RNA: Bacterial RNase P class B
RNA sequence: GAUGGAAGGUGAUCGAGGUUUAAAAACUUUAUUGUUUUUUUAAACUUAGGAAAGUCCAUGUUAGCACAUGCUGCGAUUGCAUGUAGUGUUUGUGUCUAAGGAAUAAAUAACUUAGAGUGCUUUCGCAAGAAAACAACGGCGUUUUCGGUUUCUAAGGGUCUAUUUUAUGUAAAUCUAUGAAACGAAAACUUAAAAGUGUCACAGAGACGAGCUAAUUAGAAAUAAUUAGGUGAAACGCGAUAAACCCCUCAAGCUAACAACCCAAAAUAAUGGUAGGGGCAUGUAAUUCAACAAAAUGAAGUUAGGAUUACAUUACUUUUUUAGUAGAAGAUAAAUGAUCACGCUUGUUUUUUAACAAGAACAAAACAUGGCUUAUGCAC
Dot-bracket structure: ...(..(.((((((.(((((((((((..........)))))))))))....[[[.[[[[[(((((((((((.......)))))).....(((.(((((((..........))))))(((.(((......))).)).)((.((((....((((...(((...............)))..))))...))))......(((((...........(((((((....))))))).........)))..))))).))))))))...(((............)))...(((((((.................)))))))((..((....))..))........)))))).((((((....)))))).......]]]]]]]].)...)